[Rfam]
Notes:
The record is a 101-nucleotide RNA from Vibrio gelatinilyticus, which matches "Qrr RNA" in Rfam. Rfam's curators write: This family represents a set of small RNAs (the Qrr RNAs) that are thought to be involved in the regulation of quorum sensing in Vibrio species. It is believed that these RNAs, guided by a protein, Hfq, can mediate the destabilisation of the quorum-sensing master regulators LuxR/HapR mRNAs. Gene Ontology term of the family: quorum sensing. Rfam classes the family as a small RNA. Lineage of the source: Bacteria > Pseudomonadati > Vibrionales > Vibrionaceae > Vibrio. A search with the family's covariance model found it, with a score of 80 bits.
RNA sequence: UGACUCCUAGUUCGGAGUCACCUAGCCAACUGACGUUGUUAGUGAACCUACUUGUUCACACUGUUUUUAGGCCGAUUGAUUCUUCAGUCGGCUUUUUUCUU
Dot-bracket structure: ((((((........))))))...............(((...((((((......))))))........))).((((((((....))))))))..........